FMN riboswitch aptamer (RFN element): a 126-nucleotide RNA sequence from Pasteurellaceae bacterium 15-036681.
Lineage of the source: Bacteria > Pseudomonadati > Pseudomonadota > Pasteurellales > Pasteurellaceae.
[Rfam]
RNA sequence: UUUAAUCUUCAGGGCAGGGUGAAAUUCCCGAUCGGCGGUAAAGUCCGCGAGCCAAAGCAGUUGCUGCGGCAGGAAUCAGUGAAAUUCUGAUACCGACAGUUAAAGUCUGGAUGGAAGAAGAGCAAA
Dot-bracket structure: ..(..(((((......(((.......))).[[((((((....[[))))....(...............).....(((((.......)))))]])).(((.....]]))).......)))))..)..
Numbered sequence: 001u002u003u004a005a006u007c008u009u010c011a012g013g014g015c016a017g018g019g020u021g022a023a024a025u026u027c028c029c030g031a032u033c034g035g036c037g038g039u040a041a042a043g044u045c046c047g048c049g050a051g052c053c054a055a056a057g058c059a060g061u062u063g064c065u066g067c068g069g070c071a072g073g074a075a076u077c078a079g080u081g082a083a084a085u086u087c088u089g090a091u092a093c094c095g096a097c098a099g100u101u102a103a104a105g106u107c108u109g110g111a112u113g114g115a116a117g118a119a120g121a122g123c124a125a126a
Stems, first nucleotide, its partner, number of pairs: 003124001006121005017029003031106002033095002035048004043093002053069001075091005097109003